This 68-nucleotide RNA from Brassicogethes aeneus belongs to the Rfam family "mir-71 microRNA precursor family".
Pairs were carried over by alignment from the consensus structure, which was predicted with RNAalifold.
The organism belongs to Brassicogethes, within Eukaryota.
The match comes from Rfam's covariance-model search (71 bits).
Rfam 15.1 lists 372 matches to the family in 291 species.
RNA sequence: ACUUAAUGAAAGACAUGGGUAGUGAGAUGUUAAAUUUGUUGUCUCACUACCUUGUCUUUCAUGAAGAG
Numbered sequence: 001a002c003u004u005a006a007u008g009a010a011a012g013a014c015a016u017g018g019g020u021a022g023u024g025a026g027a028u029g030u031u032a033a034a035u036u037u038g039u040u041g042u043c044u045c046a047c048u049a050c051c052u053u054g055u056c057u058u059u060c061a062u063g064a065a066g067a068g
Stems, first nucleotide, its partner, number of pairs: 008060008017052003021048009